[Rfam]
This 334-nucleotide RNA from Pelusios castaneus belongs to the Rfam family "Nuclear RNase P". NCBI's taxonomy places the organism under Eukaryota, Chordata, Euteleostomi, Sauria, Pelusios. Its Rfam clan is "RNaseP clan". By type it is a ribozyme.
Nucleotides: 334
Stems, first nucleotide, its partner, number of pairs: 001334001003332002009328003014278001016276001018273003032071001044058005082318005095250001102116003106112001118132005134249003138245003151233002280305005
Number, partner (000 for none) and nucleotide at each position: 001334c002000a003332a004331g005000c006000a007000g008000a009328g010327g011326a012000c013000u014278u015000c016276c017000a018273u019272c020271u021000c022000c023000a024000g025000u026000g027000c028000a029000a030000c031000c032071a033000a034000g035000u036000u037000g038000c039000c040000g041000g042000c043000u044058g045057g046056g047055u048054g049000c050000a051000a052000g053000u054048c055047a056046c057045c058044c059000u060000u061000u062000c063000c064000u065000a066000a067000c068000a069000g070000c071032u072000u073000c074000g075000g076000g077000a078000a079000g080000g081000u082318u083317u084316g085315a086314g087000a088000c089000a090000a091000g092000a093000a094000c095250c096000a097000a098000u099000a100000u101000g102116u103115g104114u105000c106112c107000u108000u109000g110000c111000u112106g113000a114104g115103c116102a117000c118132c119131a120130c121129c122128u123000g124000a125000g126000a127000c128122a129121g130120g131119u132118g133000u134249a135248u136247g137000a138245g139244u140243u141000u142000c143000c144000a145000g146000c147000c148000a149000g150000g151233c152232u153000g154000g155000u156000u157000c158000c159000u160000g161000a162000g163000u164000u165000c166000a167000u168000g169000u170000g171000u172000g173000a174000g175000g176000c177000a178000g179000a180000a181000g182000a183000a184000a185000u186000g187000a188000g189000c190000a191000a192000a193000g194000c195000g196000u197000c198000u199000c200000c201000u202000g203000c204000a205000u206000g207000g208000g209000c210000a211000g212000a213000u214000g215000c216000c217000c218000u219000u220000u221000c222000c223000c224000u225000g226000c227000c228000c229000c230000a231000g232152a233151g234000a235000u236000u237000g238000g239000g240000a241000c242000a243140g244139a245138c246000c247136c248135a249134u250095g251000c252000c253000a254000a255000a256000a257000g258000c259000a260000c261000u262000g263000a264000g265000u266000u267000c268000u269000c270000u271020g272019g273018g274000u275000g276016g277000a278014g279000g280305u281304g282303a283302g284301a285000c286000c287000a288000g289000u290000g291000c292000c293000c294000a295000a296000a297000c298000a299000g300000a301284u302283c303282u304281c305280a306000g307000a308000a309000g310000c311000c312000a313000a314086u315085u316084c317083a318082g319000a320000u321000u322000u323000c324000u325000c326011u327010c328009c329000u330000c331004c332003u333000a334001g